[Rfam]
RNA sequence: CCGGGGCAAUGCAACCUCCCGGUCAGGCGUCACCGCCCAAGCGUUGC
Dot-bracket structure: ((((((....[[[[[.))))))...((((....)))).....]]]]]
Rfam assigns this 47-nucleotide RNA sequence from Sphingobium phenoxybenzoativorans to the family "chrB-b RNA". A search with the family's covariance model found it, with a score of 47 bits. The source organism's lineage runs through Bacteria, Pseudomonadati, Pseudomonadota, Sphingomonadales and Sphingobium. The family's consensus secondary structure is taken from published work.